[Rfam]
Nucleotides: 129
Stems, first nucleotide, its partner, number of pairs: 016093004021088013036073001039070001042056004057067004097123010
Number, partner (000 for none) and nucleotide at each position: 001000a002000a003000u004000g005000a006000u007000a008000a009000g010000u011000a012000a013000a014000c015000c016093g017092u018091u019090u020000u021088u022087c023086u024085u025084c026083g027082u028081a029080u030079u031078c032077u033076c034000c035000u036073u037000u038000a039070c040000c041000u042056u043055u044054c045053c046000c047000u048000g049000a050000g051000c052000g053045g054044g055043g056042a057067g058066g059065c060064g061000u062000u063000u064060c065059g066058u067057c068000g069000c070039g071000a072000u073036a074000a075000a076033g077032a078031g079030a080029a081028u082027a083026c084025g085024a086023a087022g088021a089000c090019g091018a092017a093016c094000a095000a096000a097123a098122a099121a100120g101119c102118c103117u104116c105115c106114u107000g108000c109000c110000g111000c112000a113000c114106a115105g116104g117103a118102g119101g120100c121099u122098u123097u124000u125000u126000u127000u128000a129000u

Notes
The family of this 129-nucleotide RNA from Affinibrenneria salicis is "Phenylalanine leader peptide". NCBI's taxonomy places the organism under Bacteria, Pseudomonadati, Pseudomonadota, Pectobacteriaceae, Affinibrenneria. For this family Rfam cites "Nucleotide sequence of the leader region of the phenylalanine operon of Escherichia coli" (Zurawski et al., Proc Natl Acad Sci U S A, 1978). Rfam classes the family as a cis-regulatory leader.